The record is a 68-nucleotide sequence from Cyprinus carpio, which matches "mir-29 microRNA precursor family" in Rfam. The base pairs follow the family's consensus structure, which was predicted with PFOLD. Taxonomically the source falls in Cyprinus (Eukaryota, Teleostei, Otophysi, Cypriniphysae). The sequence is in the family's curated seed alignment. About the family: This family represents the microRNA (miRNA) precursors mir-29. The literature on the family includes a 2001 paper in Cell by Ambros, "microRNAs: tiny regulators with great potential". Gene Ontology terms of the family: gene silencing by miRNA and RISC complex.

RNA sequence: GGAUGACUGAUUUCCUCUGGUGCUUAGAGUCUCUUCUGUCAUCUAGCACCAUUUGAAAUCGGUUAUAA
Numbered sequence: 001g002g003a004u005g006a007c008u009g010a011u012u013u014c015c016u017c018u019g020g021u022g023c024u025u026a027g028a029g030u031c032u033c034u035u036c037u038g039u040c041a042u043c044u045a046g047c048a049c050c051a052u053u054u055g056a057a058a059u060c061g062g063u064u065a066u067a068a
Base pairs, nucleotide, nucleotide: 003066004065005063007062008061009060010059011058012057013056014055018051019050020049021048022047025045026044027043028042